[Rfam]
A member of the RNA family "mir-31 microRNA precursor family" from Rhodnius prolixus, 81 nucleotides long.
For this family Rfam cites "The small RNA profile during Drosophila melanogaster development" (Aravin et al., Dev Cell, 2003).
The organism belongs to Rhodnius, within Eukaryota.
The base pairs follow the family's consensus structure, which was predicted with RNAalifold.
RNA sequence: GCUGUGAGUUGUGGCAAGAUGUCGGCAUAGCCGUGUGAGACAUGUUUCCGGCUGUGCCACAUCCAGCCACCAUUCAUAGAC
Numbered sequence: 001g002c003u004g005u006g007a008g009u010u011g012u013g014g015c016a017a018g019a020u021g022u023c024g025g026c027a028u029a030g031c032c033g034u035g036u037g038a039g040a041c042a043u044g045u046u047u048c049c050g051g052c053u054g055u056g057c058c059a060c061a062u063c064c065a066g067c068c069a070c071c072a073u074u075c076a077u078a079g080a081c
Stems, first nucleotide, its partner, number of pairs: 005076005011070005018063004024058008